Shown here is a 70-nucleotide sequence from Crocodylus porosus, a member of the family "Mammalian CPEB3 ribozyme". Taxonomically the source falls in Crocodylus (Eukaryota, Deuterostomia, Tetrapoda, Amniota). About the family: The mammalian CPEB3 ribozyme is a self cleaving RNA located in the second intron of the CPEB3 gene which belongs to a family of genes regulating messenger RNA polyadenylation. A search with the family's covariance model found it, with a score of 43 bits.
Nucleotides: 070
Stems, first nucleotide, its partner, number of pairs: 009036001011034001014070007021033002042059006
Number, partner (000 for none) and nucleotide at each position: 001000u002000g003000u004000u005000g006000c007000a008000a009036g010000c011034u012000a013000u014070g015069g016068c017067a018066g019065a020064a021033g022032c023000a024000u025000u026000c027000a028000u029000g030000u031000c032022g033021u034011g035000a036009c037000c038000a039000u040000g041000u042059c043058a044057g045056a046055u047054u048000c049000c050000a051000a052000c053000a054047a055046a056045u057044c058043u059042g060000c061000a062000a063000a064020u065019u066018c067017u068016g069015c070014u